[Rfam]
RNA: Small nucleolar RNA SNORA25
Organism: Microcebus murinus
RNA sequence: AGGUCAUUUCAAAGAGAGCUGUGGAACUGUGAAACCAAGAACUCUUAAUGCUAUGAUAAAAAAUUGAAGUUCUCCAUGGAAUGCAAUAGUCAUUCAAGAGUGCUAUGUUUUCCUCAGGACAAAUGUGA
Numbered sequence: 001a002g003g004u005c006a007u008u009u010c011a012a013a014g015a016g017a018g019c020u021g022u023g024g025a026a027c028u029g030u031g032a033a034a035c036c037a038a039g040a041a042c043u044c045u046u047a048a049u050g051c052u053a054u055g056a057u058a059a060a061a062a063a064u065u066g067a068a069g070u071u072c073u074c075c076a077u078g079g080a081a082u083g084c085a086a087u088a089g090u091c092a093u094u095c096a097a098g099a100g101u102g103c104u105a106u107g108u109u110u111u112c113c114u115c116a117g118g119a120c121a122a123a124u125g126u127g128a
Stems, first nucleotide, its partner, number of pairs: 003057005014046005020040001022038001071121001073119003078114002081111001086106004091102004
Dot-bracket structure: ..(((((......(((((.(.(...............).).)))))......))))).............(.(((..((.(....((((.((((....))))))))....).))..))).).......